A member of the RNA family "DUF3800-IX RNA", 68 nucleotides long.
RNA sequence: AACCUGUAUUCCGAACUGUCACCGGAUGGUGGCGUGGCCAAGACAUUGGUCUAGGAACGUGGUUGGAA
Numbered sequence: 001a002a003c004c005u006g007u008a009u010u011c012c013g014a015a016c017u018g019u020c021a022c023c024g025g026a027u028g029g030u031g032g033c034g035u036g037g038c039c040a041a042g043a044c045a046u047u048g049g050u051c052u053a054g055g056a057a058c059g060u061g062g063u064u065g066g067a068a
Stems, first nucleotide, its partner, number of pairs: 001064004006060002009057004017034007036051005

It is annotated as a small RNA. Rfam's curators write: Actinobacteria, Firmicutes (1 example), Nitrospirae, Proteobacteria, Verrucomicrobia (1 example). The base pairs follow the family's consensus structure, which is taken from published work.